U7 small nuclear RNA: a 55-nucleotide sequence from Oncorhynchus mykiss. The match comes from Rfam's covariance-model search (38 bits). The base pairs follow the family's consensus structure, which was predicted with PFOLD. Rfam's curators write: Animal histone pre-mRNAs are spliced by a different mechanism than nuclear pre-mRNAs and self-splicing introns.

RNA sequence: GAAAAUUAGCUCAUUUAGUAUUUCUCCAGUAGGUUUUCUGAAAGAGAGAGCCUCC
Numbered sequence: 001g002a003a004a005a006u007u008a009g010c011u012c013a014u015u016u017a018g019u020a021u022u023u024c025u026c027c028a029g030u031a032g033g034u035u036u037u038c039u040g041a042a043a044g045a046g047a048g049a050g051c052c053u054c055c
Stems, first nucleotide, its partner, number of pairs: 032052008